This 423-nucleotide part of an RNA from Corynespora cassiicola belongs to the Rfam family "Eukaryotic large subunit ribosomal RNA". The family's consensus secondary structure is taken from published work. The organism belongs to Corynespora cassiicola, within Eukaryota. The family has 88 seed sequences and 107,465 matches in Rfam 15.1.

RNA sequence: UAACUUUAGAUUAAAUAGAGAUACCCGCUGAACUUAAGCAUAUUAAUAAAUAGAGAAAAAAAAACUAAUAGAGAUUACUUUAGUAACAGCGAGUAAAGCGGCAAUAGCUUAAAUUUAAAAUCUAGCUCUUUAAAAAGUCUAAGUUAUAAUUUAUAAAAAAUACUUUAGUAUUAGUAGUAGUUUAAGUUUUUUAAAAUAGAAUAUUAUAGAAAGUAAGAAUUUUAUACGUAGUCGCCAGCCUCUGCUGUAUAAAGCCCUUUUAAUAAAUUAAGUUAUUUAGAAAUACAGCUCUAAAUAGAAAGUAAAUUUUUUCUAAAACUAAAUACUGGCUAGAAACUAAUAGCGCAUAAGUAGAGUAAUUGAAAAAUAAAAAACACUUUAAAAAAAAAGUUAAAAAGUAUAUAAAAUUAUUAAAAGAGAAGC
Number, nucleotide and partner (000 for none) at each position: 001u000002a000003a000004c000005u000006u000007u000008a000009g000010a000011u000012u000013a000014a000015a000016u000017a000018g000019a000020g000021a000022u000023a000024c055025c053026c000027g051028c000029u049030g000031a000032a000033c000034u000035u042036a041037a000038g000039c000040a000041u036042a035043u000044u000045a000046a000047u000048a000049a029050a000051u027052a000053g025054a000055g024056a000057a000058a000059a000060a000061a000062a000063a000064a000065c000066u071067a000068a000069u000070a000071g066072a000073g000074a000075u000076u103077a000078c101079u100080u000081u000082a000083g000084u000085a000086a094087c093088a000089g000090c000091g000092a000093g087094u086095a000096a000097a000098g000099c000100g079101g078102c000103a076104a000105u000106a320107g319108c000109u317110u000111a000112a151113a150114u149115u148116u000117a000118a145119a144120a000121u142122c000123u000124a000125g138126c137127u136128c000129u000130u000131u000132a000133a000134a000135a000136a127137g126138u125139c000140u000141a000142a121143g000144u119145u118146a000147u000148a115149a114150u113151u112152u000153a000154u000155a000156a261157a260158a258159a000160a000161u000162a000163c254164u253165u252166u251167a000168g245169u244170a243171u000172u000173a000174g239175u000176a000177g235178u234179a000180g232181u231182u230183u000184a000185a000186g202187u000188u201189u200190u199191u198192u000193a000194a000195a000196a000197u000198a191199g190200a189201a188202u186203a000204u000205u209206a000207u000208a000209g205210a000211a000212a222213g221214u000215a000216a000217g000218a000219a000220u000221u213222u212223u000224a000225u000226a000227c000228g000229u000230a182231g181232u180233c000234g178235c177236c000237a000238g000239c174240c000241u000242c000243u170244g169245c168246u000247g000248u000249a000250u000251a166252a165253a164254g163255c000256c000257c000258u158259u000260u157261u156262a000263a000264u000265a000266a000267a000268u000269u000270a000271a290272g289273u288274u287275a000276u285277u000278u000279a000280g000281a000282a000283a000284u000285a276286c000287a274288g273289c272290u271291c000292u000293a000294a000295a000296u000297a314298g313299a312300a311301a310302g000303u000304a000305a000306a000307u000308u000309u000310u301311u300312u299313c298314u297315a000316a000317a109318a000319c107320u106321a000322a000323a000324u000325a000326c000327u000328g000329g000330c000331u000332a000333g000334a000335a000336a000337c000338u000339a000340a000341u000342a000343g000344c000345g000346c000347a000348u000349a000350a000351g000352u000353a000354g361355a360356g000357u000358a000359a000360u355361u354362g000363a000364a000365a000366a000367a000368u000369a000370a000371a000372a000373a000374a000375c000376a000377c000378u387379u386380u385381a000382a000383a000384a000385a380386a379387a378388a000389a000390g000391u000392u000393a000394a000395a000396a000397a000398g000399u000400a000401u000402a000403u000404a000405a000406a000407a000408u000409u000410a000411u000412u000413a000414a000415a000416a000417g000418a000419g000420a000421a000422g000423c000